[Rfam]
RNA sequence: CUGAGGCAGCAGCAGGGUGGACGUCAUGGACGGCCCUGCCCGCACGACGGGCGCUGCUGCAUUCAG
Numbered sequence: 001c002u003g004a005g006g007c008a009g010c011a012g013c014a015g016g017g018u019g020g021a022c023g024u025c026a027u028g029g030a031c032g033g034c035c036c037u038g039c040c041c042g043c044a045c046g047a048c049g050g051g052c053g054c055u056g057c058u059g060c061a062u063u064c065a066g
Base pairs, nucleotide, nucleotide: 001066002065003064004063005062009060010059011058012057013056014037015036016035017034022032023031024030025029038052039051040050041049042048